[Rfam]
RNA sequence: CCAUCAUCACCAUCAUCCUGACUAGUCUUUCAGGCGAUGUGUGCUGGAAGACAUUCAGAUCUUCCAGUGGUGCAGAACGCAAGACAGAGAGCCCCCGGAAGAUCGCCUUCCGGGGGCUUUUUUAU
Numbered sequence: 001c002c003a004u005c006a007u008c009a010c011c012a013u014c015a016u017c018c019u020g021a022c023u024a025g026u027c028u029u030u031c032a033g034g035c036g037a038u039g040u041g042u043g044c045u046g047g048a049a050g051a052c053a054u055u056c057a058g059a060u061c062u063u064c065c066a067g068u069g070g071u072g073c074a075g076a077a078c079g080c081a082a083g084a085c086a087g088a089g090a091g092c093c094c095c096c097g098g099a100a101g102a103u104c105g106c107c108u109u110c111c112g113g114g115g116g117c118u119u120u121u122u123u124a125u
Stems, first nucleotide, its partner, number of pairs: 008043003011039004017034005044067008086122016

Rfam assigns this 125-nucleotide RNA from Jejuibacter calystegiae to the family "Histidine operon leader". At least 6 amino acid operons are known to be regulated by attenuation. Lineage of the source: Bacteria > Pseudomonadati > Gammaproteobacteria > Enterobacteriaceae > Jejuibacter. Rfam links the family to the GO term histidine biosynthetic process. By type it is a cis-regulatory leader.